[Rfam]
RNA: c-di-GMP-I riboswitch aptamer
Organism: Thalassomonas actiniarum
RNA sequence: GGUUGCAGUCGCCAAACCUGCUGUAAAGCAGGGACGGAAAAUCACGGAUCCUUUUCUACAGCAAAACCGGAUUGCGCAG
Numbered sequence: 001g002g003u004u005g006c007a008g009u010c011g012c013c014a015a016a017c018c019u020g021c022u023g024u025a026a027a028g029c030a031g032g033g034a035c036g037g038a039a040a041a042u043c044a045c046g047g048a049u050c051c052u053u054u055u056c057u058a059c060a061g062c063a064a065a066a067c068c069g070g071a072u073u074g075c076g077c078a079g
Stems, first nucleotide, its partner, number of pairs: 012037002017032006040073004045069003049063001